[Rfam]
RNA: Gag/pol translational readthrough site
Organism: Cricetulus griseus
RNA sequence: UAGAAAAGUCAGGGCCAGGAGCCCCCCCCCCCCUGAGCCCAGGAUAACACUGAAAGUCGGGGGGCA
Number, nucleotide and partner (000 for none) at each position: 001u000002a000003g000004a000005a000006a000007a000008g045009u044010c043011a000012g040013g039014g038015c037016c035017a034018g033019g032020a000021g000022c064023c063024c062025c061026c060027c000028c000029c000030c000031c000032c019033c018034u017035g016036a000037g015038c014039c013040c012041a000042g000043g010044a009045u008046a000047a000048c000049a000050c000051u000052g000053a000054a000055a000056g000057u000058c000059g000060g026061g025062g024063g023064g022065c000066a000